[Rfam]
RNA: mir-9195 microRNA precursor family
Organism: Cnephaeus nilssonii
RNA sequence: AGAGGCCCUCCGCGGCCGGGGUGGAACGCUUGCCUCGUCACCGCGGCGACAAAGCAAGCAUUCCACCAGGCCGCUCACCCUGCCCAC
Numbered sequence: 001a002g003a004g005g006c007c008c009u010c011c012g013c014g015g016c017c018g019g020g021g022u023g024g025a026a027c028g029c030u031u032g033c034c035u036c037g038u039c040a041c042c043g044c045g046g047c048g049a050c051a052a053a054g055c056a057a058g059c060a061u062u063c064c065a066c067c068a069g070g071c072c073g074c075u076c077a078c079c080c081u082g083c084c085c086a087c
Stems, first nucleotide, its partner, number of pairs: 004084003012074006020067007028059006037050003041046001